Background:
Ascomycota telomerase RNA: a 476-nucleotide part of an RNA from Apiosordaria backusii. Gene Ontology terms of the family: telomerase activity, telomere maintenance via telomerase and telomerase catalytic core complex. Taxonomically the source falls in Apiosordaria (Eukaryota, Ascomycota, Pezizomycotina, Sordariomycetidae). For this family Rfam cites "The common ancestral core of vertebrate and fungal telomerase RNAs" (Qi et al., Nucleic Acids Res, 2013). It is annotated as a non-coding RNA gene.
RNA sequence: AUACAUACGGAAAGAGUUUGUUCGGUUUCGGUCUUUGGUAUCCAGGGUCCUGCGAGUUUUGGUUGCCGAUUUUGACAUAUGCUGCAUCGAUGACGGCGAGGUUCGACUAUUGGAUUGAUUUGUGGAGGUCAGGGUACUGUUUUGUGAGGGGUGUGGUGUUCGGGGGGUGGUCGGUCAACUGGUUGGGGACUCAAUGCUUCGAACCUGAGAGUCUUGGGUGAAGGACAGGUAGGGGGAGGGGAGAUCAGUUGCUGGGACCCAUCUAGAGUUGGAGUCAAAGUUUCGUGCUUGUCUGGCCUCUGGUUUCUUCUUUCUUUGCUUUGUUUGGAUCCUUGAUUUCCCGGGGGAGGGCUGUUGGUGUUCCUGGUUGACUGACAUGCGUGUCUUUUCUUUGGAACAAGGACCUGCCUCGCAAGAGGCGGUCCUGGUCGUCUUCCCCGCUGAAAAGUUGGGAGGGCGGCCCCUCGGCAACGAGG
Numbered sequence: 001a002u003a004c005a006u007a008c009g010g011a012a013a014g015a016g017u018u019u020g021u022u023c024g025g026u027u028u029c030g031g032u033c034u035u036u037g038g039u040a041u042c043c044a045g046g047g048u049c050c051u052g053c054g055a056g057u058u059u060u061g062g063u064u065g066c067c068g069a070u071u072u073u074g075a076c077a078u079a080u081g082c083u084g085c086a087u088c089g090a091u092g093a094c095g096g097c098g099a100g101g102u103u104c105g106a107c108u109a110u111u112g113g114a115u116u117g118a119u120u121u122g123u124g125g126a127g128g129u130c131a132g133g134g135u136a137c138u139g140u141u142u143u144g145u146g147a148g149g150g151g152u153g154u155g156g157u158g159u160u161c162g163g164g165g166g167g168u169g170g171u172c173g174g175u176c177a178a179c180u181g182g183u184u185g186g187g188g189a190c191u192c193a194a195u196g197c198u199u200c201g202a203a204c205c206u207g208a209g210a211g212u213c214u215u216g217g218g219u220g221a222a223g224g225a226c227a228g229g230u231a232g233g234g235g236g237a238g239g240g241g242a243g244a245u246c247a248g249u250u251g252c253u254g255g256g257a258c259c260c261a262u263c264u265a266g267a268g269u270u271g272g273a274g275u276c277a278a279a280g281u282u283u284c285g286u287g288c289u290u291g292u293c294u295g296g297c298c299u300c301u302g303g304u305u306u307c308u309u310c311u312u313u314c315u316u317u318g319c320u321u322u323g324u325u326u327g328g329a330u331c332c333u334u335g336a337u338u339u340c341c342c343g344g345g346g347g348a349g350g351g352c353u354g355u356u357g358g359u360g361u362u363c364c365u366g367g368u369u370g371a372c373u374g375a376c377a378u379g380c381g382u383g384u385c386u387u388u389u390c391u392u393u394g395g396a397a398c399a400a401g402g403a404c405c406u407g408c409c410u411c412g413c414a415a416g417a418g419g420c421g422g423u424c425c426u427g428g429u430c431g432u433c434u435u436c437c438c439c440g441c442u443g444a445a446a447a448g449u450u451g452g453g454a455g456g457g458c459g460g461c462c463c464c465u466c467g468g469c470a471a472c473g474a475g476g
Base pairs, nucleotide, nucleotide: 256276257275258274259272260271261270278290279289280288281287